[Rfam]
RNA sequence: CAACCCAUGCAGUGAUGUAUGACUGAACUGCCAGAAGUCAGCAGAGGUCGUAGUACUUCUCCGGACAUGUACGGAAGAGGAAGGAC
Numbered sequence: 001c002a003a004c005c006c007a008u009g010c011a012g013u014g015a016u017g018u019a020u021g022a023c024u025g026a027a028c029u030g031c032c033a034g035a036a037g038u039c040a041g042c043a044g045a046g047g048u049c050g051u052a053g054u055a056c057u058u059c060u061c062c063g064g065a066c067a068u069g070u071a072c073g074g075a076a077g078a079g080g081a082a083g084g085a086c
Stems, first nucleotide, its partner, number of pairs: 001025002006021006038045002047086003056079003060075003
The family of this 86-nucleotide RNA sequence from Dethiobacter sp. is "Group II catalytic intron D1-D4-1".
A search with the family's covariance model found it, with a score of 68 bits.
The source organism's lineage runs through Bacteria, Bacillati, Dethiobacteria, Dethiobacterales and Dethiobacter.
About the family: Group II introns are found in rRNA, tRNA and mRNA of organelles in fungi, plants and protists, and also in mRNA in bacteria.